[Rfam]
RNA sequence: GCAUGGGUUUGGAUUAAUGGCAGGUCUGUCCCCCUGGGCCUCUCAUAGUGCCCCAUGCCCAAGCCAACUGUAGCCCUGAACCAUUGCCUUGCCUCUGCCCAUAGGCGGCAGACACUGAAGUGGGUUGCACAGUG
Numbered sequence: 001g002c003a004u005g006g007g008u009u010u011g012g013a014u015u016a017a018u019g020g021c022a023g024g025u026c027u028g029u030c031c032c033c034c035u036g037g038g039c040c041u042c043u044c045a046u047a048g049u050g051c052c053c054c055a056u057g058c059c060c061a062a063g064c065c066a067a068c069u070g071u072a073g074c075c076c077u078g079a080a081c082c083a084u085u086g087c088c089u090u091g092c093c094u095c096u097g098c099c100c101a102u103a104g105g106c107g108g109c110a111g112a113c114a115c116u117g118a119a120g121u122g123g124g125u126u127g128c129a130c131a132g133u134g
Stems, first nucleotide, its partner, number of pairs: 001058004005053004015048001017046004022041003025037002071127006082117002088111001089108006
RNA: Small nucleolar RNA SNORA42/SNORA80 family